[Rfam]
Annotation:
Shown here is a 62-nucleotide RNA sequence from Cricetulus griseus, a member of the family "Gag/pol translational readthrough site". The family's consensus secondary structure is taken from published work. For this family Rfam cites "RNA pseudoknots: translational frameshifting and readthrough on viral RNAs" (ten Dam et al., Virus Genes, 1990). It is annotated as a cis-regulatory element.
RNA sequence: UAGGACAGUCAGGGCCAGGAGCCUCCCCCUGAGCCCUGGGUAACUCUUAACAUCGGGGGGCA
Numbered sequence: 001u002a003g004g005a006c007a008g009u010c011a012g013g014g015c016c017a018g019g020a021g022c023c024u025c026c027c028c029c030u031g032a033g034c035c036c037u038g039g040g041u042a043a044c045u046c047u048u049a050a051c052a053u054c055g056g057g058g059g060g061c062a
Base pairs, nucleotide, nucleotide: 008041009040010039012036013035014034015033016031017030018029019028022060023059024058025057026056027055